[Rfam]
RNA sequence: AUGCACCAGAUACAAGCCUGACAGUCGACGCAGUCCCACUCUGGGACUGUGUCAUGUGUGGCUGCGUGGGUUACACACGGUGCGAGAGCAACCUCAGUCCUGAGAUUUAAGCUUGGCAGUGGGGAGCGUCACUGUUGAGUUAUGGCUCAGAGGCACAGAG
Numbered sequence: 001a002u003g004c005a006c007c008a009g010a011u012a013c014a015a016g017c018c019u020g021a022c023a024g025u026c027g028a029c030g031c032a033g034u035c036c037c038a039c040u041c042u043g044g045g046a047c048u049g050u051g052u053c054a055u056g057u058g059u060g061g062c063u064g065c066g067u068g069g070g071u072u073a074c075a076c077a078c079g080g081u082g083c084g085a086g087a088g089c090a091a092c093c094u095c096a097g098u099c100c101u102g103a104g105a106u107u108u109a110a111g112c113u114u115g116g117c118a119g120u121g122g123g124g125a126g127c128g129u130c131a132c133u134g135u136u137g138a139g140u141u142a143u144g145g146c147u148c149a150g151a152g153g154c155a156c157a158g159a160g
Stems, first nucleotide, its partner, number of pairs: 003083005015072004020067001022064005027053011097154003117134006135150006
Small Cajal body specific RNA 1: a 160-nucleotide sequence from Pleuronectes platessa. The match comes from Rfam's covariance-model search (52 bits). On this family, see Darzacq et al., EMBO J 2002: "Cajal body-specific small nuclear RNAs: a novel class of 2'-O-methylation and pseudouridylation guide RNAs". Rfam 15.1 lists 715 matches to the family in 617 species. Rfam's curators write: scaRNAs are a specific class of small nuclear RNAs which localise to the Cajal bodies and guide the modification of RNA polymerase II transcribed spliceosomal RNAs U1, U2, U4, U5 and U12. The source organism's lineage runs through Eukaryota, Gnathostomata, Osteoglossocephalai, Clupeocephala and Pleuronectes.